The record is a 185-nucleotide RNA from Psychrobacillus soli, which matches "Lysine riboswitch aptamer" in Rfam.
[Rfam]
RNA sequence: AAGUGGGGUAGAGGCGCGAUAUUUAUUAGUCCUUAGUGGAGUUUGAGAAGCAAUGAUACUAAGGAGAAGGGGAUGUCGCCGAAGUUUGUAAAUAUUUCUCGGUAUUACAUGCUGGGUCUGUAGUGAACAACUACAGGACUGUCCACUUUAAACGUCCCAGUUUAUCGUGGUGUGCUAUCUCAUUU
Numbered sequence: 001a002a003g004u005g006g007g008g009u010a011g012a013g014g015c016g017c018g019a020u021a022u023u024u025a026u027u028a029g030u031c032c033u034u035a036g037u038g039g040a041g042u043u044u045g046a047g048a049a050g051c052a053a054u055g056a057u058a059c060u061a062a063g064g065a066g067a068a069g070g071g072g073a074u075g076u077c078g079c080c081g082a083a084g085u086u087u088g089u090a091a092a093u094a095u096u097u098c099u100c101g102g103u104a105u106u107a108c109a110u111g112c113u114g115g116g117u118c119u120g121u122a123g124u125g126a127a128c129a130a131c132u133a134c135a136g137g138a139c140u141g142u143c144c145a146c147u148u149u150a151a152a153c154g155u156c157c158c159a160g161u162u163u164a165u166c167g168u169g170g171u172g173u174g175c176u177a178u179c180u181c182a183u184u185u
Stems, first nucleotide, its partner, number of pairs: 006180006016079009031064008083113003087109005114140002117137008143170004149164004